[Rfam]
RNA sequence: AUUGUCUACAAGGGGAGCCAUUUGGCUGAGAAUGAACUUUUUGUUCUGACCCUUCGAACCUGUUAGUUAGUACUAGCGUAGGGAUGUAGCUUUUUUGAUGG
Dot-bracket structure: .....(((((((((.((((....))).......((((.....)))))..)))).....((((((((......))))..))))..)))))............
RNA: TPP riboswitch aptamer (THI element)